RNA sequence: GAGUCAGCGGCAUGUCGCGAGGUUAACCCAGUCUGUGGGGUAGUCGUAGCGAAAGCGAAUCCGAAAUGGGUGUUGUUAGUGGCAUGUCCUGGACCCGAAGCGGGGUGAUCUACCCAUGGCCAGUGUGAAGCAGCUGUAAGAGGUUGUGGAGGCGCGAACCCACUUAGGUUGAAAACUGAGGGGAUGAGCUGUGGGUAGGGGUGAAAGGCCAAUCAAACUCCGUGAUAGCUGGUU
Numbered sequence: 001g002a003g004u005c006a007g008c009g010g011c012a013u014g015u016c017g018c019g020a021g022g023u024u025a026a027c028c029c030a031g032u033c034u035g036u037g038g039g040g041u042a043g044u045c046g047u048a049g050c051g052a053a054a055g056c057g058a059a060u061c062c063g064a065a066a067u068g069g070g071u072g073u074u075g076u077u078a079g080u081g082g083c084a085u086g087u088c089c090u091g092g093a094c095c096c097g098a099a100g101c102g103g104g105g106u107g108a109u110c111u112a113c114c115c116a117u118g119g120c121c122a123g124u125g126u127g128a129a130g131c132a133g134c135u136g137u138a139a140g141a142g143g144u145u146g147u148g149g150a151g152g153c154g155c156g157a158a159c160c161c162a163c164u165u166a167g168g169u170u171g172a173a174a175a176c177u178g179a180g181g182g183g184a185u186g187a188g189c190u191g192u193g194g195g196u197a198g199g200g201g202u203g204a205a206a207g208g209c210c211a212a213u214c215a216a217a218c219u220c221c222g223u224g225a226u227a228g229c230u231g232g233u234u
Base pairs, nucleotide, nucleotide: 005091006090007089009088010087011086012085013084014083015082016081017080018079021045022044023043024042027039028038029037049056050055059071060070061069062068094232095231097229101222102221103220104219105218106217110198111197112196113195114194115193116192117191118190119189120188121186123155124154125153126152130147131146132145133144134143135142159183160182161181163180164179165178166177167176200210201209202208
Dot-bracket structure: ....(((.((((((((((..((((..(((.......)))..))))...((....))..((((.....)))).......)))))))))))))..((.(...((((((...((((((((((((.((((...((((((......))))))....))))...(((.(((((........))))))))..).))))))))))).(((.....)))......))))))......).))..

The family of this 234-nucleotide part of an RNA from Corynebacterium riegelii is "Bacterial large subunit ribosomal RNA".
It scores 2672 bits against the family's covariance model.
For this family Rfam cites "Crystal structure of the ribosome at 5.5 A resolution" (Yusupov et al., Science, 2001).
The base pairs follow the family's consensus structure, which is taken from published work.